[Rfam]
Record summary: This 57-nucleotide RNA sequence from Nicotiana tabacum belongs to the Rfam family "Plastid-rps18 3UTR RNA". Rfam classes the family as a cis-regulatory element.
RNA sequence: UGAAAGUAUUUUACGGUUAAGAAGCAACUAUCUCUUGUACAGAUCUUGUAUUAAUCU
Numbered sequence: 001u002g003a004a005a006g007u008a009u010u011u012u013a014c015g016g017u018u019a020a021g022a023a024g025c026a027a028c029u030a031u032c033u034c035u036u037g038u039a040c041a042g043a044u045c046u047u048g049u050a051u052u053a054a055u056c057u
Base pairs, nucleotide, nucleotide: 018037019036020035021034022033024031
A search with the family's covariance model found it, with a score of 72 bits. Rfam describes the family as follows. Plastid rps18 is a non-coding RNA (ncRNA) present in plastids. The family's consensus secondary structure was predicted with LocARNA.